[Rfam]
RNA sequence: UGAGAAAGCACGAGGGCAACUGACGCCGUAAGGUGAGGAAAGUCCCCCCUCCUCGGCAGGGCCCAGUUGGCGCAAGCCAGUGUUCCGAGAGGAAUGGUAAAGGCAAAAGAAAUCAACGGUUCCCAGUAAAGGAUGAACUCGAAGGGGAGACGUUUCUGGGAGAUCCGAUGGGAAGCCUUCCUGGGUGGAGAAAGUCUAAAAUGGCCCUGUGAAGCUGCCGUUAGGGCCGGGUGAGACGACUAGUCGAAUGUUGCCAGCCCGAAAGGGUGAACAGAAGGGGGCUUACUCCGUGGAUUCUCAUCU
Numbered sequence: 001u002g003a004g005a006a007a008g009c010a011c012g013a014g015g016g017c018a019a020c021u022g023a024c025g026c027c028g029u030a031a032g033g034u035g036a037g038g039a040a041a042g043u044c045c046c047c048c049c050u051c052c053u054c055g056g057c058a059g060g061g062c063c064c065a066g067u068u069g070g071c072g073c074a075a076g077c078c079a080g081u082g083u084u085c086c087g088a089g090a091g092g093a094a095u096g097g098u099a100a101a102g103g104c105a106a107a108a109g110a111a112a113u114c115a116a117c118g119g120u121u122c123c124c125a126g127u128a129a130a131g132g133a134u135g136a137a138c139u140c141g142a143a144g145g146g147g148a149g150a151c152g153u154u155u156c157u158g159g160g161a162g163a164u165c166c167g168a169u170g171g172g173a174a175g176c177c178u179u180c181c182u183g184g185g186u187g188g189a190g191a192a193a194g195u196c197u198a199a200a201a202u203g204g205c206c207c208u209g210u211g212a213a214g215c216u217g218c219c220g221u222u223a224g225g226g227c228c229g230g231g232u233g234a235g236a237c238g239a240c241u242a243g244u245c246g247a248a249u250g251u252u253g254c255c256a257g258c259c260c261g262a263a264a265g266g267g268u269g270a271a272c273a274g275a276a277g278g279g280g281g282c283u284u285a286c287u288c289c290g291u292g293g294a295u296u297c298u299c300a301u302c303u
Stems, first nucleotide, its partner, number of pairs: 004297003009292004013287002015255006024035004040284003044281005049190004054220005061186005066081005082095005096181002101178004117167003120162007138147002194237004203228005